[Rfam]
RNA sequence: UUGCCUUAAACUAAUGAGUAAGGAAAACAAAGCGGUGCGGUGAGAGCCGCUCGCGGUGCGGGACUCAACCCUGCACGGCAAUUUUUGGGAGGGGAAGAGGCCUGCGCGGGUAUUGACACUGCUUACUUUUGCAGGACUUGCCCUUGUGGGCCUCCCU
Number, nucleotide and partner (000 for none) at each position: 001u000002u000003g000004c023005c022006u021007u020008a019009a000010a000011c000012u000013a000014a000015u000016g000017a000018g000019u008020a007021a006022g005023g004024a000025a000026a000027a000028c000029a000030a000031a000032g054033c053034g052035g000036u000037g050038c049039g048040g047041u000042g000043a000044g000045a000046g000047c040048c039049g038050c037051u000052c034053g033054c032055g000056g076057u075058g074059c073060g072061g000062g000063a000064c000065u000066c000067a000068a000069c000070c000071c000072u060073g059074c058075a057076c056077g000078g000079c000080a000081a000082u000083u000084u000085u000086u000087g000088g000089g000090a000091g000092g157093g156094g155095a000096a000097g154098a153099g152100g151101c150102c149103u148104g000105c146106g145107c000108g143109g142110g141111u140112a139113u000114u000115g000116a000117c000118a000119c134120u133121g132122c131123u000124u000125a000126c000127u000128u000129u000130u000131g122132c121133a120134g119135g000136a000137c000138u000139u112140g111141c110142c109143c108144u000145u106146g105147u000148g103149g102150g101151c100152c099153u098154c097155c094156c093157u092